[Rfam]
pan motif: a 110-nucleotide RNA sequence from Dethiobacter alkaliphilus. The base pairs follow the family's consensus structure, which is taken from published work.
RNA sequence: CGGACGGUAUUGCGGGGCAAACCGUACCAACAAAACGUACUGAAAACAGUAUACCAAUUUAACGAAACCCCAUAGCACUGCUUGGAGCCAAUGCGGCCCGGGACAGGAGG
Dot-bracket structure: .(((((((.((.......))))))).)).................................................((((((((.(((.....)))))))).)))....